[Rfam]
RNA: SAM riboswitch aptamer (S box leader)
RNA sequence: UUCUUAUCGAGAGAGGUGGAGGGACUGGCCCUACGAAACCUCGGCAGCGGACUCUUAGAAGUACUGUGCCAAUUCCAGUAGUUAUUUACUUGAAGAUGAGAA
Numbered sequence: 001u002u003c004u005u006a007u008c009g010a011g012a013g014a015g016g017u018g019g020a021g022g023g024a025c026u027g028g029c030c031c032u033a034c035g036a037a038a039c040c041u042c043g044g045c046a047g048c049g050g051a052c053u054c055u056u057a058g059a060a061g062u063a064c065u066g067u068g069c070c071a072a073u074u075c076c077a078g079u080a081g082u083u084a085u086u087u088a089c090u091u092g093a094a095g096a097u098g099a100g101a102a
Base pairs, nucleotide, nucleotide: 001102002101003100004099005098006097007096008095013042014041015040016039017038021031022030023029025078026077027076028075043070044069045068046067048066049065050062053059074094080090081089082088
Dot-bracket structure: ((((((((....(((((...(((.[[[[)))......)))))((((.(((..(.....)..)..))))))...(]]]].(((.....)))...)))))))))